[Rfam]
Nucleotides: 081
Base pairs, nucleotide, nucleotide: 032065034063037060038059039056041054042053043052044051045050
Number, partner (000 for none) and nucleotide at each position: 001000u002000a003000a004000g005000c006000u007000u008000c009000u010000c011000a012000a013000c014000g015000a016000a017000a018000g019000c020000c021000c022000u023000u024000c025000c026000u027000c028000u029000c030000a031000a032065u033000c034063a035000u036000c037060c038059u039056c040000a041054c042053g043052g044051u045050u046000c047000c048000u049000u050045g051044a052043c053042c054041g055000c056039g057000c058000c059038g060037g061000u062000c063034u064000u065032a066000c067000a068000a069000u070000u071000u072000c073000a074000c075000a076000a077000u078000g079000g080000a081000u